[Rfam]
RNA sequence: GAUAGCCGAAGAUAGUGGCCGGGUUCAGGGUGGGGUUGGUAAUCACCCGGACGUUUUGUACCACCGGAUCAUACAGCCCGCCGAAGGCCAUCGCCUUGGCCACGAGCAGAAAGGCACCCAGCCCCAGCAGCACCAGAUGAAUGCCCAAAAUCGUGGUCAUUUUGUCGGUGUCGUCCCA
Dot-bracket structure: .......................................................................................................................................(((((....((.(................).))..)))))...
Numbered sequence: 001g002a003u004a005g006c007c008g009a010a011g012a013u014a015g016u017g018g019c020c021g022g023g024u025u026c027a028g029g030g031u032g033g034g035g036u037u038g039g040u041a042a043u044c045a046c047c048c049g050g051a052c053g054u055u056u057u058g059u060a061c062c063a064c065c066g067g068a069u070c071a072u073a074c075a076g077c078c079c080g081c082c083g084a085a086g087g088c089c090a091u092c093g094c095c096u097u098g099g100c101c102a103c104g105a106g107c108a109g110a111a112a113g114g115c116a117c118c119c120a121g122c123c124c125c126a127g128c129a130g131c132a133c134c135a136g137a138u139g140a141a142u143g144c145c146c147a148a149a150a151u152c153g154u155g156g157u158c159a160u161u162u163u164g165u166c167g168g169u170g171u172c173g174u175c176c177c178a
Stems, first nucleotide, its partner, number of pairs: 136175005145168002148165001